[Rfam]
RNA sequence: CUCUGUUUCUAAAGGAAUCAGGGCAAAAAGGAG
Numbered sequence: 001c002u003c004u005g006u007u008u009c010u011a012a013a014g015g016a017a018u019c020a021g022g023g024c025a026a027a028a029a030g031g032a033g
Stems, first nucleotide, its partner, number of pairs: 001023005007017003